The family of this 404-nucleotide sequence from Microcaecilia unicolor is "Small Cajal body-specific RNA 2".
RNA sequence: GUGUGUGUGUGUGAGUGAGGAACGGGAGUAGUUGUGUGUGUGAUGUGUGCUCGUGUGAGUGAGUGAUUGAUUGUAUGAACAAGGUGUGUGGUUUUUUCCGUGUGAACGUGUGCGUGGCUCCUCUCUUCUUAGCCUUUCUCUCCUACACAUUGAUCUUAUUUGAUCGGGCGCGGCCUGCAGCCACCGCUGCCUGGCGUGAGAAGACUUCCUCUUGCUAGCCGGGUUGCUCCUGGCCAUGUGCGCGGAGGCUUCGGUGCCACCGGCUGCUCCCCUCCCCCCCACUCCUCUAGGGGUUUCGGGCGUGAUGAAGCGAUCAGAUAGACGAGACCGGGGCGCAGGCGACUGGACUCCCGGGUCCGCCGCGGAGCCCCCCGGCGCUGAGUAGCCAAGCGAUUCUGAUCCGA
Numbered sequence: 001g002u003g004u005g006u007g008u009g010u011g012u013g014a015g016u017g018a019g020g021a022a023c024g025g026g027a028g029u030a031g032u033u034g035u036g037u038g039u040g041u042g043a044u045g046u047g048u049g050c051u052c053g054u055g056u057g058a059g060u061g062a063g064u065g066a067u068u069g070a071u072u073g074u075a076u077g078a079a080c081a082a083g084g085u086g087u088g089u090g091g092u093u094u095u096u097u098c099c100g101u102g103u104g105a106a107c108g109u110g111u112g113c114g115u116g117g118c119u120c121c122u123c124u125c126u127u128c129u130u131a132g133c134c135u136u137u138c139u140c141u142c143c144u145a146c147a148c149a150u151u152g153a154u155c156u157u158a159u160u161u162g163a164u165c166g167g168g169c170g171c172g173g174c175c176u177g178c179a180g181c182c183a184c185c186g187c188u189g190c191c192u193g194g195c196g197u198g199a200g201a202a203g204a205c206u207u208c209c210u211c212u213u214g215c216u217a218g219c220c221g222g223g224u225u226g227c228u229c230c231u232g233g234c235c236a237u238g239u240g241c242g243c244g245g246a247g248g249c250u251u252c253g254g255u256g257c258c259a260c261c262g263g264c265u266g267c268u269c270c271c272c273u274c275c276c277c278c279c280c281a282c283u284c285c286u287c288u289a290g291g292g293g294u295u296u297c298g299g300g301c302g303u304g305a306u307g308a309a310g311c312g313a314u315c316a317g318a319u320a321g322a323c324g325a326g327a328c329c330g331g332g333g334c335g336c337a338g339g340c341g342a343c344u345g346g347a348c349u350c351c352c353g354g355g356u357c358c359g360c361c362g363c364g365g366a367g368c369c370c371c372c373c374g375g376c377g378c379u380g381a382g383u384a385g386c387c388a389a390g391c392g393a394u395u396c397u398g399a400u401c402c403g404a
Base pairs, nucleotide, nucleotide: 032132033131034130036128037053038052040050041049042048069087071082072081073080074079090119091118092117095114097112099110159202160201161200164194165193166192167191169189170188173187176186180184216266217265218264219263220262221261222260226257227256229254230253232250233249234248235247237244274293275292276291277290297403298402299401300400307396308395309394311392312391326376328374331371332370
Notes
Rfam classes the family as a small Cajal body RNA. A reference for the family is Tycowski et al. (2004), "Guide RNAs with 5' caps and novel box C/D snoRNA-like domains for modification of snRNAs in metazoa", Curr Biol.